[Rfam]
RNA: PyrR binding site
Organism: Paenibacillus durus
RNA sequence: AGCGCCUUUAAUUCAGUCCCGUGAGGCUGGCAAGGUAACGUGAAUCGAGGUUCGCGGCUUUUUGUAGGGAAUCCGUCUGUCUGCACGGAGUUCUUUUGCUGCGCGCCCGUCAUUCUUCUUCAAUCUGCGGAUUUCACUCCUUGCCUGCUUCAGGCAAGGAGUUUUUUGUU
Numbered sequence: 001a002g003c004g005c006c007u008u009u010a011a012u013u014c015a016g017u018c019c020c021g022u023g024a025g026g027c028u029g030g031c032a033a034g035g036u037a038a039c040g041u042g043a044a045u046c047g048a049g050g051u052u053c054g055c056g057g058c059u060u061u062u063u064g065u066a067g068g069g070a071a072u073c074c075g076u077c078u079g080u081c082u083g084c085a086c087g088g089a090g091u092u093c094u095u096u097u098g099c100u101g102c103g104c105g106c107c108c109g110u111c112a113u114u115c116u117u118c119u120u121c122a123a124u125c126u127g128c129g130g131a132u133u134u135c136a137c138u139c140c141u142u143g144c145c146u147g148c149u150u151c152a153g154g155c156a157a158g159g160a161g162u163u164u165u166u167u168g169u170u
Stems, first nucleotide, its partner, number of pairs: 004036005013030006066095005072089005078083001136162011